The family of this 108-nucleotide sequence from Nocardioides jishulii is "TPP riboswitch aptamer (THI element)".

RNA sequence: CGCGUCAGACAGGGGAGCCCGUGACACGGGCUGAGAGUGCGGACCAGCCGCAGACCCUACGAACCUGCUCCGGUUAAUACCGGCGAAGGGAGUCAGAAGAUGUCCGUG
Numbered sequence: 001c002g003c004g005u006c007a008g009a010c011a012g013g014g015g016a017g018c019c020c021g022u023g024a025c026a027c028g029g030g031c032u033g034a035g036a037g038u039g040c041g042g043a044c045c046a047g048c049c050g051c052a053g054a055c056c057c058u059a060c061g062a063a064c065c066u067g068c069u070c071c072g073g074u075u076a077a078u079a080c081c082g083g084c085g086a087a088g089g090g091a092g093u094c095a096g097a098a099g100a101u102g103u104c105c106g107u108g
Base pairs, nucleotide, nucleotide: 006096008094009093010092011058012057013056014055017031018030019029020028021027038052039051040050041049042048064089065088066087070083071082072081073080
Rfam's curators write: Vitamin B(1) in its active form thiamin pyrophosphate (TPP) is an essential coenzyme that is synthesised by coupling of pyrimidine and thiazole moieties in bacteria. Taxonomically the source falls in Nocardioides (Bacteria, Bacillati, Propionibacteriales, Nocardioidaceae). The family's consensus secondary structure is taken from published work.